[Rfam]
RNA sequence: UCACACGUUAAUGACCUCUUGGCUGUUAGCACUUACCUCGUUGUCCCUUCCGGAAGGAAGACGUCGAGAUGAUAGCGUGGCUUUUAAGGAUGUGUUUUGUCCACGCGUCAACGCCCUCCUUCAUCUUGCCUCACCAGCAAAAAGCGGAGAGGAAACAAAAACGAGUCCUAGUG
Numbered sequence: 001u002c003a004c005a006c007g008u009u010a011a012u013g014a015c016c017u018c019u020u021g022g023c024u025g026u027u028a029g030c031a032c033u034u035a036c037c038u039c040g041u042u043g044u045c046c047c048u049u050c051c052g053g054a055a056g057g058a059a060g061a062c063g064u065c066g067a068g069a070u071g072a073u074a075g076c077g078u079g080g081c082u083u084u085u086a087a088g089g090a091u092g093u094g095u096u097u098u099g100u101c102c103a104c105g106c107g108u109c110a111a112c113g114c115c116c117u118c119c120u121u122c123a124u125c126u127u128g129c130c131u132c133a134c135c136a137g138c139a140a141a142a143a144g145c146g147g148a149g150a151g152g153a154a155a156c157a158a159a160a161a162c163g164a165g166u167c168c169u170a171g172u173g
Base pairs, nucleotide, nucleotide: 007030008029009028010027011026012025015022016021036071037068038067039066040065042063043062044061045060051056089167090166091165092162093161095160096159097158098157099156100155114152115151116149117148118147119146125144126143127142
Dot-bracket structure: ......((((((..((....))..)))))).....(((((.((((.....(....)...)))).))))..).................(((((.((((((.............((((((.....(((..............))).)))).))..))))))))..)))......